[Rfam]
RNA sequence: AUAAGGAGGAAUCUAUAUGACGAAGUCAUAUUUAACAUGAUUCCGACGACUUGCCGCCGAGCAAAGCGAGGGGGCGUCACAGCUU
Numbered sequence: 001a002u003a004a005g006g007a008g009g010a011a012u013c014u015a016u017a018u019g020a021c022g023a024a025g026u027c028a029u030a031u032u033u034a035a036c037a038u039g040a041u042u043c044c045g046a047c048g049a050c051u052u053g054c055c056g057c058c059g060a061g062c063a064a065a066g067c068g069a070g071g072g073g074g075c076g077u078c079a080c081a082g083c084u085u
Stems, first nucleotide, its partner, number of pairs: 008044006016030005053075003057071002061067002
RNA: GA-cis RNA